[Rfam]
Overview
The family of this 47-nucleotide RNA from Paralcaligenes ureilyticus is "Guanidine-II riboswitch aptamer (mini-ykkC)". The source organism's lineage runs through Bacteria, Pseudomonadota, Betaproteobacteria, Burkholderiales and Paralcaligenes. The base pairs follow the family's consensus structure, which is taken from published work. Rfam's curators write: Simpler in structure and has fewer highly conserved nucleotide positions than the ykkC-yxkD leader. Despite this each of its two stem-loop structures directly bind free guanidine. Therefore, mini-ykkC RNA motif represents a distinct class of guanidine-sensing RNAs. Its crystal structure was also determined.
RNA sequence: AAGUGGGGACGACCUCACUGCUUCGGCGAUUAGUGGGGACGGCCCCU
Number, nucleotide and partner (000 for none) at each position: 001a000002a019003g018004u017005g016006g015007g014008g013009a000010c000011g000012a000013c008014c007015u006016c005017a004018c003019u002020g000021c000022u000023u000024c000025g000026g000027c000028g000029a000030u000031u000032a000033g000034u000035g046036g045037g044038g043039a000040c000041g000042g000043c038044c037045c036046c035047u000